[Rfam]
RNA sequence: AUUAAACAAUAGCCGAAUGCUUUAUGCAGCGGGGGAUCAAUUUUGGGGUGAAUCCGAAAGGUAGGGACUCUCUCUUCCCGAACCCGUCAACUAACCUCGUAGGCUUAAGAGAGGUGUUAU
Numbered sequence: 001a002u003u004a005a006a007c008a009a010u011a012g013c014c015g016a017a018u019g020c021u022u023u024a025u026g027c028a029g030c031g032g033g034g035g036a037u038c039a040a041u042u043u044u045g046g047g048g049u050g051a052a053u054c055c056g057a058a059a060g061g062u063a064g065g066g067a068c069u070c071u072c073u074c075u076u077c078c079c080g081a082a083c084c085c086g087u088c089a090a091c092u093a094a095c096c097u098c099g100u101a102g103g104c105u106u107a108a109g110a111g112a113g114g115u116g117u118u119a120u
Stems, first nucleotide, its partner, number of pairs: 011105004018028003029100006040044001046085003054061002064079004